[Rfam]
RNA sequence: CAAAAAGAUAGAGGCGCAAAUCUUUAAGAGUAAGGGCUUGGAGAAGUACGGGCUUCCUUGAAGGGUUCUGAAAGGGGAGAUUUGCCGAAGUGGAGAAAUGACCGUCAUUUUUUCUGCUGGUCCUACGUUUAAGAAAUGUAGGAUUGUCAAAAUGGUAAAAGCCAUUUUGGAGAGCUAUCCCAUGU
Numbered sequence: 001c002a003a004a005a006a007g008a009u010a011g012a013g014g015c016g017c018a019a020a021u022c023u024u025u026a027a028g029a030g031u032a033a034g035g036g037c038u039u040g041g042a043g044a045a046g047u048a049c050g051g052g053c054u055u056c057c058u059u060g061a062a063g064g065g066u067u068c069u070g071a072a073a074g075g076g077g078a079g080a081u082u083u084g085c086c087g088a089a090g091u092g093g094a095g096a097a098a099u100g101a102c103c104g105u106c107a108u109u110u111u112u113u114c115u116g117c118u119g120g121u122c123c124u125a126c127g128u129u130u131a132a133g134a135a136a137u138g139u140a141g142g143a144u145u146g147u148c149a150a151a152a153u154g155g156u157a158a159a160a161g162c163c164a165u166u167u168u169g170g171a172g173a174g175c176u177a178u179c180c181c182a183u184g185u
Stems, first nucleotide, its partner, number of pairs: 007179005016085009033069007089118010119145011147170007
The family of this 185-nucleotide RNA from Lederbergia galactosidilytica is "Lysine riboswitch aptamer". The family's consensus secondary structure is taken from published work.